[Rfam]
RNA sequence: CACAAUUGAAUAGGCUCCUCAAGGGUGGUCGGCUCAUCCCCUCACGAAAGGGGGUGAGAUCGGUAUGACGGAAUUUCAGACAUUGACGGUGAUGAUUGCAUUCGGUUCUCUUGGUAGUGCUAUCAUUUUCGGAACGUUGACUGUAAUACUGUCCAUACUCAACCUGACAAAAAAGAAAUAGACCUCCCUUGAGCUUGGCCGCUUAGGAGAUCUAUUUCUAGCAGACAUUGAGCCGACACCCUUGAUGGGUAUCAGUUGUGCAAACGGCCGUAGGUGUUUCCCGCACCUGCG
Numbered sequence: 001c002a003c004a005a006u007u008g009a010a011u012a013g014g015c016u017c018c019u020c021a022a023g024g025g026u027g028g029u030c031g032g033c034u035c036a037u038c039c040c041c042u043c044a045c046g047a048a049a050g051g052g053g054g055u056g057a058g059a060u061c062g063g064u065a066u067g068a069c070g071g072a073a074u075u076u077c078a079g080a081c082a083u084u085g086a087c088g089g090u091g092a093u094g095a096u097u098g099c100a101u102u103c104g105g106u107u108c109u110c111u112u113g114g115u116a117g118u119g120c121u122a123u124c125a126u127u128u129u130c131g132g133a134a135c136g137u138u139g140a141c142u143g144u145a146a147u148a149c150u151g152u153c154c155a156u157a158c159u160c161a162a163c164c165u166g167a168c169a170a171a172a173a174a175g176a177a178a179u180a181g182a183c184c185u186c187c188c189u190u191g192a193g194c195u196u197g198g199c200c201g202c203u204u205a206g207g208a209g210a211u212c213u214a215u216u217u218c219u220a221g222c223a224g225a226c227a228u229u230g231a232g233c234c235g236a237c238a239c240c241c242u243u244g245a246u247g248g249g250u251a252u253c254a255g256u257u258g259u260g261c262a263a264a265c266g267g268c269c270g271u272a273g274g275u276g277u278u279u280c281c282c283g284c285a286c287c288u289g290c291g
Stems, first nucleotide, its partner, number of pairs: 001260005007254003013234005018193008027183001029181001034057003038053005067153005073147001081094002105144002205217001239248002269291009
Rfam assigns this 291-nucleotide RNA sequence from Tumebacillus flagellatus to the family "BsrG". A search with the family's covariance model found it, with a score of 102 bits. Rfam describes the family as follows. bsrE, bsrG and bsrH pair through intermolecular interactions with antisense sRNAs. They form type I toxin/antitoxin system that includes an mRNA encoding for a short, toxic peptide (bsrE, bsrG and bsrH) and an antitoxin that is comprised of an antisense RNA. bsrG encodes a 39-amino-acid toxin, and the 180 nucleotide antisense sRNA called SR4 acts as the antitoxin (they overlap by 123 nucleotides). SR4 interaction with the 3'UTR of bsrG RNA promotes bsrG degradation and inhibits its translation. BsrG interferes with cell envelope biosynthesis, causes membrane invaginations and delocalisation of the cell wall synthesis and initiates autolysis. bsrE RNA encodes 30 amino-acid toxin peptide. Its antitoxin gene, SR5 overlaps by 112 nucleotides at the 3' end of bsrE. SR5 also overlaps bsrG from nucleotide 163 to 52 (Rfam overlap check). The antitoxin SR5 promotes bsrE degradation but unlike SR4 it does not directly inhibits toxin mRNA translation.